[Rfam]
RNA sequence: AGCCUCCUGGUGCUCAGCACAGGAUAUGUUAUUACCCCAACCAAACAGAAAGAGGAGGCUGAAUUAACCUAUCCCAUAUACAUCUCAACCCAGGCCCUGGGACUCAUCUGUAUUGUCAAUGGGGAGACAUGG
Number, nucleotide and partner (000 for none) at each position: 001a000002g059003c058004c057005u056006c055007c054008u053009g000010g000011u000012g000013c000014u000015c000016a000017g000018c000019a000020c000021a000022g041023g000024a000025u000026a000027u000028g035029u034030u000031a000032u000033u000034a029035c028036c000037c000038c000039a000040a000041c022042c000043a000044a000045a000046c000047a000048g000049a000050a000051a000052g000053a008054g007055g006056a005057g004058g003059c002060u000061g000062a000063a000064u000065u000066a000067a000068c000069c000070u000071a000072u124073c123074c122075c121076a120077u119078a000079u000080a000081c000082a000083u000084c000085u000086c110087a109088a000089c000090c000091c000092a104093g103094g000095c101096c000097c000098u000099g000100g000101g095102a000103c093104u092105c000106a000107u000108c000109u087110g086111u000112a000113u000114u000115g000116u000117c000118a000119a077120u076121g075122g074123g073124g072125a000126g000127a000128c000129a000130u000131g000132g000
RNA: Small nucleolar RNA SNORA51